[Rfam]
RNA sequence: GCCGAUGAUGAAAUAAUCUGAAUGUAUGAGAUACAGUGGAUCCAAGACCUUGUUUUACAGGGAGAACCCCUUGGUGAAGCUGUGUUCACAUGAUAUUAUCGGAUUUAACUGAGGU
Numbered sequence: 001g002c003c004g005a006u007g008a009u010g011a012a013a014u015a016a017u018c019u020g021a022a023u024g025u026a027u028g029a030g031a032u033a034c035a036g037u038g039g040a041u042c043c044a045a046g047a048c049c050u051u052g053u054u055u056u057a058c059a060g061g062g063a064g065a066a067c068c069c070c071u072u073g074g075u076g077a078a079g080c081u082g083u084g085u086u087c088a089c090a091u092g093a094u095a096u097u098a099u100c101g102g103a104u105u106u107a108a109c110u111g112a113g114g115u
Stems, first nucleotide, its partner, number of pairs: 001115003048062005